[Rfam]
RNA sequence: CCUUGUGUACGACCACAAGUAGCCUAAGAAAGCAUGCAGGAGCAGUAAUGCACCUGUGUGAAGCCUUUCUGACAAUGUACCCCCGCGCAAGCAGCAAAAGUUACCCGUGAGGGUGCUCUUGGACACCGCCAGCAGAAGGAGGUGGAGGGG
Numbered sequence: 001c002c003u004u005g006u007g008u009a010c011g012a013c014c015a016c017a018a019g020u021a022g023c024c025u026a027a028g029a030a031a032g033c034a035u036g037c038a039g040g041a042g043c044a045g046u047a048a049u050g051c052a053c054c055u056g057u058g059u060g061a062a063g064c065c066u067u068u069c070u071g072a073c074a075a076u077g078u079a080c081c082c083c084c085g086c087g088c089a090a091g092c093a094g095c096a097a098a099a100g101u102u103a104c105c106c107g108u109g110a111g112g113g114u115g116c117u118c119u120u121g122g123a124c125a126c127c128g129c130c131a132g133c134a135g136a137a138g139g140a141g142g143u144g145g146a147g148g149g150g
Base pairs, nucleotide, nucleotide: 002019003018004017005016006015007014028069029068030067031066032065033060034059035058036057037056038055039054040053042051043050044049083094085092086091095121096120097119105112106111125143126142127141129139130138

Overview
The family of this 150-nucleotide RNA sequence from Comamonas aquatica is "Group II catalytic intron D1-D4-7". The match comes from Rfam's covariance-model search (112 bits). Rfam links the family to the GO term Group II intron splicing. For this family Rfam cites "Control of branch-site choice by a group II intron" (Chu et al., EMBO J, 2001).